[Rfam]
RNA sequence: UGACCAUUCCAUUUACGUGGAAUCAAGGCCAUACGGACAGCCGGGUCAAAUGCCGA
Numbered sequence: 001u002g003a004c005c006a007u008u009c010c011a012u013u014u015a016c017g018u019g020g021a022a023u024c025a026a027g028g029c030c031a032u033a034c035g036g037a038c039a040g041c042c043g044g045g046u047c048a049a050a051u052g053c054c055g056a
Stems, first nucleotide, its partner, number of pairs: 001048005006023006
Streptococcus sRNA SpF59 (ldcC RNA): a 56-nucleotide sequence. The literature on the family includes a 2012 paper in PLoS Pathog by Mann et al., "Control of virulence by small RNAs in Streptococcus pneumoniae". The family's RNA type in Rfam is small RNA. The sequence is in the family's curated seed alignment.